DUF805b RNA: a 35-nucleotide RNA. The base pairs follow the family's consensus structure, which is taken from published work. The family's RNA type in Rfam is cis-regulatory element.

RNA sequence: AGCGGGGAUGCCGAAAACCGCUACCAGAGUAGGCU
Numbered sequence: 001a002g003c004g005g006g007g008a009u010g011c012c013g014a015a016a017a018c019c020g021c022u023a024c025c026a027g028a029g030u031a032g033g034c035u
Stems, first nucleotide, its partner, number of pairs: 002021004010034003